[Rfam]
RNA sequence: UGGUGGUGAUGUCUGAACUCACGAUGGUCUUCAGAGCCCCCGUUGGUGAAGGGGAGCUGCUGACAGUGCCAGUGGCAACUGCUGAACCGCGGGA
Numbered sequence: 001u002g003g004u005g006g007u008g009a010u011g012u013c014u015g016a017a018c019u020c021a022c023g024a025u026g027g028u029c030u031u032c033a034g035a036g037c038c039c040c041c042g043u044u045g046g047u048g049a050a051g052g053g054g055a056g057c058u059g060c061u062g063a064c065a066g067u068g069c070c071a072g073u074g075g076c077a078a079c080u081g082c083u084g085a086a087c088c089g090c091g092g093g094a
Stems, first nucleotide, its partner, number of pairs: 001089004
Shown here is a 94-nucleotide RNA sequence from Eudromia elegans, a member of the family "Small nucleolar RNA SNORD35". The organism belongs to Eudromia, within Eukaryota. The base pairs follow the family's consensus structure, which was predicted with PFOLD. The family is grouped with related families in Rfam's "SNORD35 clan". U35 is a C/D box snoRNA located in intron 6 of ribosomal protein L13A and intron 3 of ribosomal protein S11 in humans and at homologous positions in mouse and chicken ribosomal protein genes. U35 guides the methylation of 2'-O-ribose sites in 28S rRNA. The family's RNA type in Rfam is C/D-box small nucleolar RNA.